[Rfam]
RNA sequence: UACACAAAGCAUAUGAUGAGAAAGCAUUAAAACUGAGUGUGUGAAGCAUAUUCAAUCCAACACUGAGCUUUGUGUC
Numbered sequence: 001u002a003c004a005c006a007a008a009g010c011a012u013a014u015g016a017u018g019a020g021a022a023a024g025c026a027u028u029a030a031a032a033c034u035g036a037g038u039g040u041g042u043g044a045a046g047c048a049u050a051u052u053c054a055a056u057c058c059a060a061c062a063c064u065g066a067g068c069u070u071u072g073u074g075u076c
Stems, first nucleotide, its partner, number of pairs: 002075009
Dot-bracket structure: .(((((((((........................................................))))))))).
RNA: Small nucleolar RNA SNORD69